[Rfam]
RNA sequence: CACUAUUAUAUUAUUGCUUCUUGUAUAAGCUCACAAUGUGGGUGAGCGUCUCUACAGGCAACCGUGAAUUGCCCCAGGCUACAAGAGGUGUAUCAGUUAUU
Numbered sequence: 001c002a003c004u005a006u007u008a009u010a011u012u013a014u015u016g017c018u019u020c021u022u023g024u025a026u027a028a029g030c031u032c033a034c035a036a037u038g039u040g041g042g043u044g045a046g047c048g049u050c051u052c053u054a055c056a057g058g059c060a061a062c063c064g065u066g067a068a069u070u071g072c073c074c075c076a077g078g079c080u081a082c083a084a085g086a087g088g089u090g091u092a093u094c095a096g097u098u099a100u101u
Stems, first nucleotide, its partner, number of pairs: 018087008029047006057073005
Rfam assigns this 101-nucleotide sequence from Paenibacillus durus to the family "Purine riboswitch aptamer". The family's consensus secondary structure is taken from published work. A search with the family's covariance model found it, with a score of 53 bits.